[Rfam]
RNA sequence: ACUCGACUAGGCGAGUAUAAAUAGCCGUCAAGCCUAGUGCGUGCCCCUCAUGGGGCGGUCGGA
Numbered sequence: 001a002c003u004c005g006a007c008u009a010g011g012c013g014a015g016u017a018u019a020a021a022u023a024g025c026c027g028u029c030a031a032g033c034c035u036a037g038u039g040c041g042u043g044c045c046c047c048u049c050a051u052g053g054g055g056c057g058g059u060c061g062g063a
Stems, first nucleotide, its partner, number of pairs: 001016004006038006025062003032040001042057006
RNA: Pistol ribozyme